[Rfam]
RNA sequence: GGUUCAGUAGCUCAGUUGGUAGAGCAUUUGAUUGAAGCUCAAAGUGUCGGCAGUUCAAUUCUGUCCUGAACCA
Numbered sequence: 001g002g003u004u005c006a007g008u009a010g011c012u013c014a015g016u017u018g019g020u021a022g023a024g025c026a027u028u029u030g031a032u033u034g035a036a037g038c039u040c041a042a043a044g045u046g047u048c049g050g051c052a053g054u055u056c057a058a059u060u061c062u063g064u065c066c067u068g069a070a071c072c073a
Stems, first nucleotide, its partner, number of pairs: 001072007010025004027043005049065005
A member of the RNA family "tRNA" from Spiroplasma melliferum, 73 nucleotides long.
It is one of the family's seed sequences.
The family's consensus secondary structure is taken from published work.
By type it is a transfer RNA.